The record is a 113-nucleotide RNA sequence from Alligator sinensis, which matches "U5 spliceosomal RNA" in Rfam. For this family Rfam cites "The uRNA database" (Zwieb, Nucleic Acids Res, 1997). Rfam classes the family as a spliceosomal small nuclear RNA. The family's consensus secondary structure is taken from published work. From the family's description: U5 RNA is a component of both types of known spliceosome. The precise function of this molecule is unknown, though it is known that the 5' loop is required for splice site selection and p220 binding, and that both the 3' stem-loop and the Sm site are important for Sm protein binding and cap methylation.

RNA sequence: AGGCUUUGGCUUUUCAGUUUGUAUAAAUCUUUCACCUUUUACUAAAAAUUUCCAUGGGGAGAAGCGGUGAGGAGUUCUCAACCAAUUUUCUGAGAUCCUGUUUCAGCUGAUCC
Numbered sequence: 001a002g003g004c005u006u007u008g009g010c011u012u013u014u015c016a017g018u019u020u021g022u023a024u025a026a027a028u029c030u031u032u033c034a035c036c037u038u039u040u041a042c043u044a045a046a047a048a049u050u051u052c053c054a055u056g057g058g059g060a061g062a063a064g065c066g067g068u069g070a071g072g073a074g075u076u077c078u079c080a081a082c083c084a085a086u087u088u089u090c091u092g093a094g095a096u097c098c099u100g101u102u103u104c105a106g107c108u109g110a111u112c113c
Stems, first nucleotide, its partner, number of pairs: 003075004009065003012059005025051004030046003094112004